This 35-nucleotide RNA from Cyprinus carpio belongs to the Rfam family "Iron response element I". A reference for the family is Hentze et al. (1987), "Identification of the iron-responsive element for the translational regulation of human ferritin mRNA", Science. The match comes from Rfam's covariance-model search (44 bits).
RNA sequence: GAGAUUCUUGCUUCAACAGUGAUUGAACAGAUCUU
Numbered sequence: 001g002a003g004a005u006u007c008u009u010g011c012u013u014c015a016a017c018a019g020u021g022a023u024u025g026a027a028c029a030g031a032u033c034u035u
Stems, first nucleotide, its partner, number of pairs: 001035005007030002010028001012027005017021001